[Rfam]
RNA sequence: ACACGGAUAUUGUCCCUGUUCUGACUCUGUGAUAAUUAGGAAAUGCUAAACAGUUGCUACAGUAAGACCGUGCACAUAUCUCAGACCUACUUCUCUUCCUAGGCUGGGUUUUCUCAGUGCUGGUGACAGGU
Numbered sequence: 001a002c003a004c005g006g007a008u009a010u011u012g013u014c015c016c017u018g019u020u021c022u023g024a025c026u027c028u029g030u031g032a033u034a035a036u037u038a039g040g041a042a043a044u045g046c047u048a049a050a051c052a053g054u055u056g057c058u059a060c061a062g063u064a065a066g067a068c069c070g071u072g073c074a075c076a077u078a079u080c081u082c083a084g085a086c087c088u089a090c091u092u093c094u095c096u097u098c099c100u101a102g103g104c105u106g107g108g109u110u111u112u113c114u115c116a117g118u119g120c121u122g123g124u125g126a127c128a129g130g131u
Stems, first nucleotide, its partner, number of pairs: 004056002017043001019041006026034001067124004072120002082107001084105001086103004

Description:
The family of this 131-nucleotide RNA from Mus spicilegus is "Small nucleolar RNA SNORA72". NCBI's taxonomy places the organism under Eukaryota, Euteleostomi, Tetrapoda, Muroidea, Mus. Gene Ontology terms of the family: RNA processing and nucleolus. The family's RNA type in Rfam is H/ACA-box small nucleolar RNA. Rfam describes the family as follows. U72 is a member of the H/ACA class of snoRNAs. The snoRNA gene is located in intron 4 of the ribosomal L30 protein gene in human, mouse and chicken.